[Rfam]
RNA sequence: GUAUUCCCUCCGAGUAAGAACUAGACAUUACGCUCGUACCGAGUCUUGGUGGCUAAAGGUAACUUUAGUCGCUAAGCGUAGACAGUGAUGGUAGUGAGUCGAAAGCCAAAUUAUUAAAGGGAUUGAACUUCUAAGGGUAGUCAUUCAAGAGGGAUGAGGCUUUUCGUUCAGCAGGCAAGCUACAUUUUCCGUCAUUAGGGCGAGAAAGAUAAAAUCUGGAUUCAGAGACCU
Dot-bracket structure: ..........(((((...((.[.[...))..)))))((((..((((((((((((((((....))))))))))....)).))))......))))..............................((.(.(((...................(((.(...(((........))).....).)....(((((..((.......].]))..)..)))))).))).)).)......
Rfam assigns this 231-nucleotide RNA from Halalkalibacter akibai to the family "Group II catalytic intron D1-D4-6". From the family's description: Group II introns are found in rRNA, tRNA and mRNA of organelles in fungi, plants and protists, and also in mRNA in bacteria. The source organism's lineage runs through Bacteria, Bacillati, Bacillota, Bacillaceae and Halalkalibacter akibai. Pairs were carried over by alignment from the consensus structure.